[Rfam]
RNA sequence: CACGUCAGCGCGAUUUGCUGACAUGGGAACAAAGGGCGGCCUUGAAAGCGCGAUUUGUGUCCACGUCAGCAAAGCACGCUGACGUGG
Numbered sequence: 001c002a003c004g005u006c007a008g009c010g011c012g013a014u015u016u017g018c019u020g021a022c023a024u025g026g027g028a029a030c031a032a033a034g035g036g037c038g039g040c041c042u043u044g045a046a047a048g049c050g051c052g053a054u055u056u057g058u059g060u061c062c063a064c065g066u067c068a069g070c071a072a073a074g075c076a077c078g079c080u081g082a083c084g085u086g087g
Stems, first nucleotide, its partner, number of pairs: 001086010012075001014073008024063004029058005036051003
Dot-bracket structure: ((((((((((.(.((((((((..((((.(((((..(((..........)))..))))).))))..)))))))).).)))))))))).